[Rfam]
Nucleotides: 105
Base pairs, nucleotide, nucleotide: 011088012087013086014085015084017082026077027076028075029074030073093103094102095101
Number, partner (000 for none) and nucleotide at each position: 001000u002000a003000c004000a005000a006000a007000g008000g009000a010000u011088c012087u013086u014085c015084u016000a017082c018000u019000a020000a021000g022000a023000c024000c025000g026077c027076c028075a029074a030073c031000g032000u033000c034000c035000u036000g037000g038000g039000a040000c041000u042000g043000c044000g045000c046000c047000u048000g049000g050000g051000c052000u053000c054000g055000c056000c057000c058000c059000a060000c061000c062000g063000a064000a065000g066000a067000c068000c069000a070000u071000u072000u073030g074029u075028u076027g077026g078000c079000a080000a081000c082017g083000c084015a085014g086013a087012a088011g089000u090000c091000a092000c093103c094102a095101c096000a097000u098000c099000c100000u101095g102094u103093g104000a105000a
Bacillaceae-1 RNA: a 105-nucleotide sequence from Virgibacillus indicus. It scores 43 bits against the family's covariance model. NCBI's taxonomy places the organism under Bacteria, Bacillati, Bacillota, Caryophanales, Virgibacillus. Pairs were carried over by alignment from the consensus structure, which is taken from published work.